A member of the RNA family "mir-9/mir-79 microRNA precursor family" from Drosophila albomicans, 78 nucleotides long.
RNA sequence: ACUGCCAUUGCUUUGGCGCUUUAGCUGUAUGAUAGAUUUGAAUACUUCAUAAAGCUAGAUUACCAAAGCAUUGGCGGA
Numbered sequence: 001a002c003u004g005c006c007a008u009u010g011c012u013u014u015g016g017c018g019c020u021u022u023a024g025c026u027g028u029a030u031g032a033u034a035g036a037u038u039u040g041a042a043u044a045c046u047u048c049a050u051a052a053a054g055c056u057a058g059a060u061u062a063c064c065a066a067a068g069c070a071u072u073g074g075c076g077g078a
Base pairs, nucleotide, nucleotide: 002077003076004075005074007072009070010069011068012067013066014065015064016063018061020059021058022057023056024055025054026053028051029050030049031048032047

The family's consensus secondary structure was predicted with RNAalifold. A search with the family's covariance model found it, with a score of 69 bits.